[Rfam]
RNA sequence: UCGCGGUGUCGUGACUGGCGUUGAGGUGGUGCACCACCGGGAAGCGACCGAGACGGCAUUCGACCGCACGCCUGGGCCGAUGCG
Numbered sequence: 001u002c003g004c005g006g007u008g009u010c011g012u013g014a015c016u017g018g019c020g021u022u023g024a025g026g027u028g029g030u031g032c033a034c035c036a037c038c039g040g041g042a043a044g045c046g047a048c049c050g051a052g053a054c055g056g057c058a059u060u061c062g063a064c065c066g067c068a069c070g071c072c073u074g075g076g077c078c079g080a081u082g083c084g
Stems, first nucleotide, its partner, number of pairs: 004052001008048005015041002017072005026037004061079002064076002
This 84-nucleotide RNA from Microbacterium album belongs to the Rfam family "ZMP/ZTP riboswitch aptamer (pfl RNA motif)". Pairs were carried over by alignment from the consensus structure, which is taken from published work. On this family, see Kim et al., Mol Cell 2015: "An ancient riboswitch class in bacteria regulates purine biosynthesis and one-carbon metabolism". A search with the family's covariance model found it, with a score of 52 bits.